[Rfam]
Nucleotides: 124
Base pairs, nucleotide, nucleotide: 007038008037009035010034011033012032013031014030015029017027061118062117063116066113067112068111073106075104076103077102079100080099081098084092085091
Number, partner (000 for none) and nucleotide at each position: 001000a002000g003000c004000u005000a006000g007038c008037c009035u010034c011033u012032u013031u014030g015029u016000a017027g018000a019000a020000a021000a022000u023000a024000u025000a026000a027017u028000a029015g030014c031013g032012a033011a034010g035009g036000a037008g038007g039000u040000u041000a042000a043000u044000g045000c046000u047000u048000g049000u050000a051000c052000c053000u054000u055000a056000a057000u058000u059000g060000c061118c062117u063116u064000u065000u066113g067112c068111u069000c070000u071000u072000c073106a074000u075104g076103c077102u078000u079100g080099c081098u082000a083000a084092g085091g086000c087000u088000u089000u090000u091085c092084c093000c094000u095000u096000g097000a098081a099080g100079c101000u102077g103076g104075u105000c106073u107000a108000g109000u110000a111068a112067g113066c114000u115000u116063a117062a118061g119000c120000g121000c122000a123000a124000u